The family of this 132-nucleotide sequence from Ibidorhyncha struthersii is "Small nucleolar RNA SNORA69". Rfam describes the family as follows. U69 is a member of the H/ACA class of small nucleolar RNAs (snoRNAs) which act as guides in the the modification of uridines to pseudouridines. It scores 87 bits against the family's covariance model. Gene Ontology terms of the family: RNA processing and nucleolus. By type it is an H/ACA-box small nucleolar RNA.
[Rfam]
RNA sequence: AAAGCAGGCUGCAAUUACAGUGCUUCAUUCUGUGGGAGUACUGCCAUUUUCCUGCUGAGAGUAACUCUGUUAACACUGUCUUCAGUUUCAUCUAUAUAGUGGUGAAACUGUUUGUUCUUAACGUGUACAAGU
Number, nucleotide and partner (000 for none) at each position: 001a000002a000003a056004g055005c054006a053007g052008g051009c000010u000011g000012c000013a000014a000015u000016u000017a000018c043019a042020g041021u040022g039023c038024u037025u036026c035027a000028u000029u000030c000031u000032g000033u000034g000035g026036g025037a024038g023039u022040a021041c020042u019043g018044c000045c000046a000047u000048u000049u000050u000051c008052c007053u006054g005055c004056u003057g000058a000059g000060a000061g000062u000063a000064a000065c000066u125067c000068u123069g122070u121071u120072a119073a118074c000075a116076c000077u000078g000079u000080c000081u000082u000083c110084a109085g108086u107087u106088u105089c104090a103091u102092c101093u000094a000095u000096a000097u000098a000099g000100u000101g092102g091103u090104g089105a088106a087107a086108c085109u084110g083111u000112u000113u000114g000115u000116u075117c000118u073119u072120a071121a070122c069123g068124u000125g066126u000127a000128c000129a000130a000131g000132u000